[Rfam]
RNA: Trypanosomatid snoRNA TB6Cs1H4
RNA sequence: CGCCGCGCAUUCAAGGUCCCUUGGCGGCGAUUAUAUACCCUCGAUGCUGCUUCACAGGAUACCCAGCGUGGCCAGA
Dot-bracket structure: .((((((........((((....(((((.................)))))......))))......))))))....